[Rfam]
RNA sequence: AUACCAAAAAAACCCUUUUUUUUGUGGGAAGGUUUUUUAAUAAGCUUUCCCAACUUCGGUUGUUUGGGAGAAUAAAGAAAAGACCACACUCCACAGUGGGCUAUACCACUUAAUGUAGUUCACUACUAUUUUGUGGCCUACAUU
Numbered sequence: 001a002u003a004c005c006a007a008a009a010a011a012a013c014c015c016u017u018u019u020u021u022u023u024g025u026g027g028g029a030a031g032g033u034u035u036u037u038u039a040a041u042a043a044g045c046u047u048u049c050c051c052a053a054c055u056u057c058g059g060u061u062g063u064u065u066g067g068g069a070g071a072a073u074a075a076a077g078a079a080a081a082g083a084c085c086a087c088a089c090u091c092c093a094c095a096g097u098g099g100g101c102u103a104u105a106c107c108a109c110u111u112a113a114u115g116u117a118g119u120u121c122a123c124u125a126c127u128a129u130u131u132u133g134u135g136g137c138c139u140a141c142a143u144u
Stems, first nucleotide, its partner, number of pairs: 004067005014062001017059002024054001027051002030048001031045001033043002081139002084136005095124011
This 144-nucleotide sequence from Diceros bicornis belongs to the Rfam family "Small nucleolar RNA SNORA4". The source organism's lineage runs through Eukaryota, Vertebrata, Gnathostomata, Tetrapoda and Diceros bicornis. Its family is annotated with nucleolus and RNA processing in the Gene Ontology. Pairs were carried over by alignment from the consensus structure, which was predicted with PFOLD. About the family: ACA4 is a member of the H/ACA class of snoRNA that guide the sites of modification of uridines to pseudouridines.